[Rfam]
Rfam assigns this 74-nucleotide RNA from Caedimonas varicaedens to the family "tRNA". The match comes from Rfam's covariance-model search (64 bits). Rfam's curators write: Transfer RNA (tRNA) molecules are approximately 80 nucleotides in length. NCBI's taxonomy places the organism under Bacteria, Pseudomonadati, Alphaproteobacteria, Holosporales, Caedimonas.

RNA sequence: CGGAGUGUAGCUCAGCCUGGUAGAGUAUCGCCUUCGGGAGGCGAGGGACGGAGGUUCAAAUCCUCUCACUCCGA
Numbered sequence: 001c002g003g004a005g006u007g008u009a010g011c012u013c014a015g016c017c018u019g020g021u022a023g024a025g026u027a028u029c030g031c032c033u034u035c036g037g038g039a040g041g042c043g044a045g046g047g048a049c050g051g052a053g054g055u056u057c058a059a060a061u062c063c064u065c066u067c068a069c070u071c072c073g074a
Base pairs, nucleotide, nucleotide: 001073002072003071004070005069006068007067010026011025012024013023028044029043030042031041032040050066051065052064053063054062